[Rfam]
RNA: Fungal signal recognition particle RNA
Organism: Drepanopeziza brunnea
RNA sequence: CGGCUGUAACGGUCAUCAAGGAGGGAGAUAUCAACGAUCCCCAACUUCUCCACCCAUCUCUCUGUCUAACGACAAAGCCAUCAGCGGUGCCCAGUCCGAACAUGGCGGUGACGUCCCACUCGUGCAGGUAACUCACGAUCGCUGGUGGUGUCCUAAGCAAUGGAGGAGACCGGUUCAGGGAGGUUUCACUCUGCAGAUCGAUCUCCACCGUGGUGUGGCGGUAUUGGAAUACACUUGCUGCGUGGUUUGGGUGGUGGGUUGGGGUUGAGCGUCGACCUAUUUUUUUACAUUUUUUUU
Dot-bracket structure: .(((.......)))...((((((.(....(..((....(.(((((.((.(((((((...((.((((....)))).))(((.((((((((.((((((((.((((.((((.(.(((((((.(((((.((....)))))))....))).)))).)(...)...((((((....(((((....(((......)))....))))).)))))))))).))))..))).)))))....))).)))))..)))..))))))).))))))..)..)............))..)...).))))))..
Numbered sequence: 001c002g003g004c005u006g007u008a009a010c011g012g013u014c015a016u017c018a019a020g021g022a023g024g025g026a027g028a029u030a031u032c033a034a035c036g037a038u039c040c041c042c043a044a045c046u047u048c049u050c051c052a053c054c055c056a057u058c059u060c061u062c063u064g065u066c067u068a069a070c071g072a073c074a075a076a077g078c079c080a081u082c083a084g085c086g087g088u089g090c091c092c093a094g095u096c097c098g099a100a101c102a103u104g105g106c107g108g109u110g111a112c113g114u115c116c117c118a119c120u121c122g123u124g125c126a127g128g129u130a131a132c133u134c135a136c137g138a139u140c141g142c143u144g145g146u147g148g149u150g151u152c153c154u155a156a157g158c159a160a161u162g163g164a165g166g167a168g169a170c171c172g173g174u175u176c177a178g179g180g181a182g183g184u185u186u187c188a189c190u191c192u193g194c195a196g197a198u199c200g201a202u203c204u205c206c207a208c209c210g211u212g213g214u215g216u217g218g219c220g221g222u223a224u225u226g227g228a229a230u231a232c233a234c235u236u237g238c239u240g241c242g243u244g245g246u247u248u249g250g251g252u253g254g255u256g257g258g259u260u261g262g263g264g265u266u267g268a269g270c271g272u273c274g275a276c277c278u279a280u281u282u283u284u285u286u287a288c289a290u291u292u293u294u295u296u297u
Stems, first nucleotide, its partner, number of pairs: 002014003018295006025288001030284001033281002039267001041264001042261004047257002050254007060077002063074004078245003082240005087234003091227005096221003100216004105211004110152001112150004116145003120138005126133002153157001161207006171200005180191003